[Rfam]
RNA sequence: GUUUGCCUGUGUGUGGAUGGUGUUCAGCACCAAGGACAGGCAUAGUUGCCUGUUUGUGGAAGGCAUUCAGCACCAAGGACAAGUAUAUUUGCCU
Numbered sequence: 001g002u003u004u005g006c007c008u009g010u011g012u013g014u015g016g017a018u019g020g021u022g023u024u025c026a027g028c029a030c031c032a033a034g035g036a037c038a039g040g041c042a043u044a045g046u047u048g049c050c051u052g053u054u055u056g057u058g059g060a061a062g063g064c065a066u067u068c069a070g071c072a073c074c075a076a077g078g079a080c081a082a083g084u085a086u087a088u089u090u091g092c093c094u
Base pairs, nucleotide, nucleotide: 004085005084006083008081009080010079018075019074020073021072022071023070024069026067027066030063031062034055036053037052038051039050040049041048042047

The record is a 94-nucleotide RNA from Branchiostoma belcheri, which matches "mir-2060 microRNA precursor family" in Rfam. The organism belongs to Branchiostoma, within Eukaryota. A search with the family's covariance model found it, with a score of 86 bits.